A member of the RNA family "c-di-GMP-I riboswitch aptamer" from Bacillus sp. OK048, 87 nucleotides long. Its family is annotated with cyclic-di-GMP binding in the Gene Ontology. The base pairs follow the family's consensus structure, which is taken from published work.

RNA sequence: CGUACGAAAGGGCAACACCAUUGAAAAAUGGUCUCGCAAAACUAUAGGGGCUAACGUUUUUUGAAACUAUGCCAGCCAGGUGCCGAA
Numbered sequence: 001c002g003u004a005c006g007a008a009a010g011g012g013c014a015a016c017a018c019c020a021u022u023g024a025a026a027a028a029u030g031g032u033c034u035c036g037c038a039a040a041a042c043u044a045u046a047g048g049g050g051c052u053a054a055c056g057u058u059u060u061u062u063g064a065a066a067c068u069a070u071g072c073c074a075g076c077c078a079g080g081u082g083c084c085g086a087a
Stems, first nucleotide, its partner, number of pairs: 012037002017032006040081001042079002047077002049073003056067004
Dot-bracket structure: ...........((...((((((....))))))...))..(.((...(((((....((((....))))...)))..)))).)......